[Rfam]
RNA sequence: AAUCAAGCAAAUUGCUUGGCUCGUAUAUCAUCGGGAAUACGGCCCGAUCGUCUCUACCCGGAAACCUUAAAUUUUCGGACUACGAGCUCUUGGAUCGACUUC
Numbered sequence: 001a002a003u004c005a006a007g008c009a010a011a012u013u014g015c016u017u018g019g020c021u022c023g024u025a026u027a028u029c030a031u032c033g034g035g036a037a038u039a040c041g042g043c044c045c046g047a048u049c050g051u052c053u054c055u056a057c058c059c060g061g062a063a064a065c066c067u068u069a070a071a072u073u074u075u076c077g078g079a080c081u082a083c084g085a086g087c088u089c090u091u092g093g094a095u096c097g098a099c100u101u102c
Stems, first nucleotide, its partner, number of pairs: 018088008030048006058078007
Dot-bracket structure: .................((((((((....((((((.......)))))).........(((((((.......)))))))..))))))))..............

This 102-nucleotide sequence from Cohnella lubricantis belongs to the Rfam family "Purine riboswitch aptamer". Clan: Purine riboswitches. The match comes from Rfam's covariance-model search (80 bits).